[Rfam]
Shown here is an 84-nucleotide RNA from Zootermopsis nevadensis, a member of the family "Mammalian CPEB3 ribozyme".
The source organism's lineage runs through Eukaryota, Pancrustacea, Neoptera, Termopsini and Zootermopsis.
RNA sequence: CUCGCAAAAAGGGGGGUCACAGCAGGAGCGUUAAAUGUCGCGGUCCUGGUCGAACCCAUGUACUGGUUGGUCGUGAAUCCUGCU
Number, nucleotide and partner (000 for none) at each position: 001c000002u000003c000004g000005c000006a000007a000008a000009a000010a000011g000012g000013g047014g046015g045016g044017u043018c042019a000020c000021a084022g083023c082024a081025g080026g079027a078028g041029c040030g039031u000032u000033a000034a000035a000036u000037g000038u000039c030040g029041c028042g018043g017044u016045c015046c014047u013048g000049g000050u000051c073052g072053a071054a000055c000056c000057c000058a000059u000060g000061u000062a000063c000064u000065g000066g000067u000068u000069g000070g000071u053072c052073g051074u000075g000076a000077a000078u027079c026080c025081u024082g023083c022084u021
Source information:
About the family: The mammalian CPEB3 ribozyme is a self cleaving RNA located in the second intron of the CPEB3 gene which belongs to a family of genes regulating messenger RNA polyadenylation. This ribozyme is highly conserved and found only in mammals. The CPEB3 ribozyme is structurally and biochemically related to the human hepatitis delta virus (HDV) ribozyme and the HDV ribozyme is proposed to have arisen from the human transcriptome.